This 57-nucleotide sequence from Corynebacterium kutscheri belongs to the Rfam family "msiK RNA".
RNA sequence: GGGGCGCACUUCACUCGGAUCGUUCGGCACGUACCUGCCGAUGAAGCACAGUAAAGG
Numbered sequence: 001g002g003g004g005c006g007c008a009c010u011u012c013a014c015u016c017g018g019a020u021c022g023u024u025c026g027g028c029a030c031g032u033a034c035c036u037g038c039c040g041a042u043g044a045a046g047c048a049c050a051g052u053a054a055a056g057g
Base pairs, nucleotide, nucleotide: 009046010045011044012043013042024041025040026039027038028037029036

Taxonomically the source falls in Corynebacterium (Bacteria, Bacillati, Mycobacteriales, Corynebacteriaceae).
The family's consensus secondary structure is taken from published work.